Notes
Rfam assigns this 111-nucleotide RNA sequence from Brassica rapa to the family "Plastid-psbA-1 3UTR RNA". The organism belongs to Brassica, within Eukaryota. The family is grouped with related families in Rfam's "Plastid-psbA 3UTR RNA clan". Rfam describes the family as follows. Plastid psbA-1 is a non-coding RNA (ncRNA) present in plastids.

RNA sequence: UUGAGGCUCCAUCUAUAAAUGGAUAAUUCUUUAGUGUUAGUCUAGACCUAGUUUAGUAAUAUUAAAAACGAGCGAUAUAAGCCUUAUUUUUAAGGCUUAUAUCGCUCGUUU
Numbered sequence: 001u002u003g004a005g006g007c008u009c010c011a012u013c014u015a016u017a018a019a020u021g022g023a024u025a026a027u028u029c030u031u032u033a034g035u036g037u038u039a040g041u042c043u044a045g046a047c048c049u050a051g052u053u054u055a056g057u058a059a060u061a062u063u064a065a066a067a068a069c070g071a072g073c074g075a076u077a078u079a080a081g082c083c084u085u086a087u088u089u090u091u092a093a094g095g096c097u098u099a100u101a102u103c104g105c106u107c108g109u110u111u
Stems, first nucleotide, its partner, number of pairs: 008023005066111013080097005
Rfam classes the family as a cis-regulatory element.